[Rfam]
RNA: Xanthomonas sRNA sX9
Organism: Xanthomonas oryzae
RNA sequence: GUGUACACCCGUACACUGCGGUUCUGAGCGCGCCGUCCACGCCCACCUGACGACUGCUCGCUACGUUUUCUAAGAA
Numbered sequence: 001g002u003g004u005a006c007a008c009c010c011g012u013a014c015a016c017u018g019c020g021g022u023u024c025u026g027a028g029c030g031c032g033c034c035g036u037c038c039a040c041g042c043c044c045a046c047c048u049g050a051c052g053a054c055u056g057c058u059c060g061c062u063a064c065g066u067u068u069u070c071u072a073a074g075a076a
Stems, first nucleotide, its partner, number of pairs: 002015005019035004024030001047074002050071001052069002